[Rfam]
RNA sequence: ACACCUCCUUCUAUUGUGCCUGAGUGAUAAAGAAAAAGAUGUCACUUAAUCUCGCCAUAUGCUGGAAAACCCUAGUACUUCCCUUUUUACUUUCAUGUAAUUAUAGCUAGGAUAAUCAGCAGGAAACCAACGGAUAUAAAAACCAUUUAACCCUUCUAUACCUAACUUUAGUAUAGUAGAUAAAUGGUGGUUAUAACUUAGUAGGAUUCUCAGAGACUACACGCGAGACAUUUUAAGAUUCACCUUUUAUCUUAUGAAUGAAGAUAUAGUCCAAUCAUUAUAGUAAUAUAAUG
Numbered sequence: 001a002c003a004c005c006u007c008c009u010u011c012u013a014u015u016g017u018g019c020c021u022g023a024g025u026g027a028u029a030a031a032g033a034a035a036a037a038g039a040u041g042u043c044a045c046u047u048a049a050u051c052u053c054g055c056c057a058u059a060u061g062c063u064g065g066a067a068a069a070c071c072c073u074a075g076u077a078c079u080u081c082c083c084u085u086u087u088u089a090c091u092u093u094c095a096u097g098u099a100a101u102u103a104u105a106g107c108u109a110g111g112a113u114a115a116u117c118a119g120c121a122g123g124a125a126a127c128c129a130a131c132g133g134a135u136a137u138a139a140a141a142a143c144c145a146u147u148u149a150a151c152c153c154u155u156c157u158a159u160a161c162c163u164a165a166c167u168u169u170a171g172u173a174u175a176g177u178a179g180a181u182a183a184a185u186g187g188u189g190g191u192u193a194u195a196a197c198u199u200a201g202u203a204g205g206a207u208u209c210u211c212a213g214a215g216a217c218u219a220c221a222c223g224c225g226a227g228a229c230a231u232u233u234u235a236a237g238a239u240u241c242a243c244c245u246u247u248u249a250u251c252u253u254a255u256g257a258a259u260g261a262a263g264a265u266a267u268a269g270u271c272c273a274a275u276c277a278u279u280a281u282a283g284u285a286a287u288a289u290a291a292u293g
Stems, first nucleotide, its partner, number of pairs: 001017002028036001050228004055223001060121006071111006122209002127204001128201001133197001135195005213272001215271005231258003234254006278291005
Group I catalytic intron: a 293-nucleotide RNA sequence from Lachnellula cervina. For this family Rfam cites "Crystal structure of a group I ribozyme domain: principles of RNA packing" (Cate et al., Science, 1996). The match comes from Rfam's covariance-model search (57 bits). From the family's description: Group I catalytic introns are large self-splicing ribozymes. They catalyse their own excision from mRNA, tRNA and rRNA precursors in a wide range of organisms. The core secondary structure consists of 9 paired regions (P1-P9).